The record is an 82-nucleotide RNA sequence from Aphis craccivora, which matches "mir-927 microRNA precursor family" in Rfam. The base pairs follow the family's consensus structure, which was predicted with RNAalifold. Gene Ontology terms of the family: miRNA-mediated post-transcriptional gene silencing and RISC complex. A search with the family's covariance model found it, with a score of 71 bits. A reference for the family is Ruby et al. (2007), "Evolution, biogenesis, expression, and target predictions of a substantially expanded set of Drosophila microRNAs", Genome Res. Lineage of the source: Eukaryota > Panarthropoda > Hexapoda > Aphidini > Aphis. The family has 16 seed sequences and 174 matches in Rfam 15.1.

[Rfam]
RNA sequence: CUGUGGCGUUUGGUUUUAGAAUUCCUACGCUUUACCGUACAAUUUUAUCGGCAAAGCGUUUGAAUUGUAAAACCAAACCCCA
Numbered sequence: 001c002u003g004u005g006g007c008g009u010u011u012g013g014u015u016u017u018a019g020a021a022u023u024c025c026u027a028c029g030c031u032u033u034a035c036c037g038u039a040c041a042a043u044u045u046u047a048u049c050g051g052c053a054a055a056g057c058g059u060u061u062g063a064a065u066u067g068u069a070a071a072a073c074c075a076a077a078c079c080c081c082a
Base pairs, nucleotide, nucleotide: 010076011075012074013073014072015071016070017069018068020066022064023063024062027059028058029057030056031055032054033053035051036050